[Rfam]
RNA: permuted transfer-messenger RNA
Organism: Erythrobacter sp. NAP1
RNA sequence: GGCGAUAAAUUGCUGCGUGCAAUAGGCACAACGGACCCGGGGGCAGUACCCGGCGGCUCCACCAUAAACCCCGGUUUUACGGGAUUUCUGACGGGGCCGAACUAGGAUCGACGUGGGCUGAAAAGCGUAGUUUUUGCUCGGGCUGAGUAACCCGUAAUAGGCUCAUUCUCAUAAGUGCCAACGAUAACGAAGCACUCGCAGUUGCAGCGUAA
Dot-bracket structure: (((((.........((((........(.(.(((...(((((.......)))))(((((((................................)))))))............)))).).......)))).....)))))((((........))))..........................................................